[Rfam]
RNA sequence: CUAAACAAUGGGCAAACUUAUCGAAAGGUAAGGACGCAAAGCCAAGGGCCUUAAGCUUGGGAGAGCAUGGCAGCCGGUUGCGGAG
Dot-bracket structure: ...........((...((((((....))))))...))..((((..(((((....((((....))))..)))..))))))......